[Rfam]
RNA: Flavo-1 RNA
Organism: Flavobacterium macacae
RNA sequence: UAAUAGCCCCGAUUGGCGGCAGUAGCUUUUUCUUCCGUUUUCGGAGAAAAACUACUGCAGAAAGCGGGAAUUGCG
Numbered sequence: 001u002a003a004u005a006g007c008c009c010c011g012a013u014u015g016g017c018g019g020c021a022g023u024a025g026c027u028u029u030u031u032c033u034u035c036c037g038u039u040u041u042c043g044g045a046g047a048a049a050a051a052c053u054a055c056u057g058c059a060g061a062a063a064g065c066g067g068g069a070a071u072u073g074c075g
Base pairs, nucleotide, nucleotide: 009067010066011065013063014062016058017057021053022052028050029049030048031047032046033045034044035043